A member of the RNA family "CRISPR RNA direct repeat element" from Parabacteroides sp. An277, 47 nucleotides long.
A search with the family's covariance model found it, with a score of 61 bits.
Its family is annotated with defense response in the Gene Ontology.

RNA sequence: GUUGUGAUUUGUUUUCAAAUUUGUAUCUUUGAACUAUUGAAAACAAC
Numbered sequence: 001g002u003u004g005u006g007a008u009u010u011g012u013u014u015u016c017a018a019a020u021u022u023g024u025a026u027c028u029u030u031g032a033a034c035u036a037u038u039g040a041a042a043a044c045a046a047c
Stems, first nucleotide, its partner, number of pairs: 014033006